[Rfam]
Small nucleolar RNA SNORA43: a 134-nucleotide RNA sequence from Ornithorhynchus anatinus.
About the family: ACA43 is a member of the H/ACA class of snoRNA that guide the sites of modification of uridines to pseudouridines.
The family's RNA type in Rfam is H/ACA-box small nucleolar RNA.
Its family is annotated with RNA processing and nucleolus in the Gene Ontology.
The family's consensus secondary structure was predicted with RNAfold.
It scores 90 bits against the family's covariance model.

RNA sequence: GUUGUCCUACUGGUGUCACAGGCGUGGCUACUCUUCUGUGUCUGUGCCACUGAGUGGCAAAAAGGAAGUGGCUUUGUCUAUACUCAGUGUUCAAAACUCCAUGAGCACUCAGAAUGGUUAAUGGACCAAUAUAU
Numbered sequence: 001g002u003u004g005u006c007c008u009a010c011u012g013g014u015g016u017c018a019c020a021g022g023c024g025u026g027g028c029u030a031c032u033c034u035u036c037u038g039u040g041u042c043u044g045u046g047c048c049a050c051u052g053a054g055u056g057g058c059a060a061a062a063a064g065g066a067a068g069u070g071g072c073u074u075u076g077u078c079u080a081u082a083c084u085c086a087g088u089g090u091u092c093a094a095a096a097c098u099c100c101a102u103g104a105g106c107a108c109u110c111a112g113a114a115u116g117g118u119u120a121a122u123g124g125a126c127c128a129a130u131a132u133a134u
Stems, first nucleotide, its partner, number of pairs: 001055003018045004070126001072124001078117003083112002088107006